The record is a 139-nucleotide RNA, which matches "Caenorhabditis snoRNA ceN80" in Rfam. It scores 116 bits against the family's covariance model. The base pairs follow the family's consensus structure, which was predicted with RNAalifold. Rfam links the family to the GO terms RNA processing and nucleolus. Rfam classes the family as an H/ACA-box small nucleolar RNA.

RNA sequence: AAUCCAUGUUUACUACUACUUGUCCUUUCCAUUCACUGAAAUUUCGAGUAUUUGCGAUACAUGGAAUAGAAAUUCCCUUUGCUAACCAGGUUUCUUCAUUUUCCAUCUGAAAAUGGAGUUACAAAGUUAGCAGACAAUU
Numbered sequence: 001a002a003u004c005c006a007u008g009u010u011u012a013c014u015a016c017u018a019c020u021u022g023u024c025c026u027u028u029c030c031a032u033u034c035a036c037u038g039a040a041a042u043u044u045c046g047a048g049u050a051u052u053u054g055c056g057a058u059a060c061a062u063g064g065a066a067u068a069g070a071a072a073u074u075c076c077c078u079u080u081g082c083u084a085a086c087c088a089g090g091u092u093u094c095u096u097c098a099u100u101u102u103c104c105a106u107c108u109g110a111a112a113a114u115g116g117a118g119u120u121a122c123a124a125a126g127u128u129a130g131c132a133g134a135c136a137a138u139u
Base pairs, nucleotide, nucleotide: 004064005063006062007061008060009059017050018049019048020047021046022045028039029038080132081131082130083129084128085127086126090122091121094118095117096116097115098114099113100112